Nucleotides: 102
Base pairs, nucleotide, nucleotide: 019087020086021085022084023083024082025081029049030048031047032046033045034044058078059077060076061075062074063073064072
Number, partner (000 for none) and nucleotide at each position: 001000c002000c003000g004000u005000u006000g007000a008000a009000g010000g011000a012000a013000a014000u015000a016000u017000g018000a019087g020086c021085u022084c023083a024082u025081a026000u027000a028000a029049u030048c031047c032046c033045a034044a035000u036000a037000a038000u039000a040000u041000g042000g043000u044034u045033u046032g047031g048030g049029a050000g051000u052000a053000u054000c055000u056000a057000c058078c059077g060076g061075a062074u063073g064072a065000c066000c067000g068000u069000a070000a071000a072064u073063u074062a075061u076060c077059c078058g079000a080000c081025u082024a083023u084022g085021g086020g087019u088000g089000a090000a091000u092000g093000a094000u095000u096000a097000g098000c099000g100000c101000a102000a